The record is an 87-nucleotide RNA sequence from Halpernia frigidisoli, which matches "Flavo-1 RNA" in Rfam. NCBI's taxonomy places the organism under Bacteria, Pseudomonadati, Flavobacteriia, Flavobacteriales, Halpernia. The family's consensus secondary structure is taken from published work.

Nucleotides: 087
Stems, first nucleotide, its partner, number of pairs: 012079003016075002021070002026065004032060008
Number, partner (000 for none) and nucleotide at each position: 001000g002000u003000u004000u005000u006000g007000c008000g009000u010000g011000a012079g013078c014077g015000a016075u017074a018000g019000u020000a021070g022069u023000g024000a025000a026065a027064a028063u029062c030000c031000u032060u033059u034058u035057u036056u037055g038054c039053u040000g041000u042000a043000g044000c045000a046000a047000a048000g049000c050000g051000g052000a053039a054038g055037u056036a057035g058034a059033a060032a061000a062029g063028a064027u065026u066000g067000c068000a069022a070021c071000g072000g073000a074017u075016a076000g077014c078013g079012c080000g081000g082000u083000u084000u085000u086000u087000u